[Rfam]
RNA sequence: GGCUGACCGUUUUCUUCUGGUGUUUAGAGUUCAUUUAGUGUCUAGCACCAUUUGAAAUCGGUUACAA
Numbered sequence: 001g002g003c004u005g006a007c008c009g010u011u012u013u014c015u016u017c018u019g020g021u022g023u024u025u026a027g028a029g030u031u032c033a034u035u036u037a038g039u040g041u042c043u044a045g046c047a048c049c050a051u052u053u054g055a056a057a058u059c060g061g062u063u064a065c066a067a
Stems, first nucleotide, its partner, number of pairs: 004064001005062001007061003011057004018050005025044004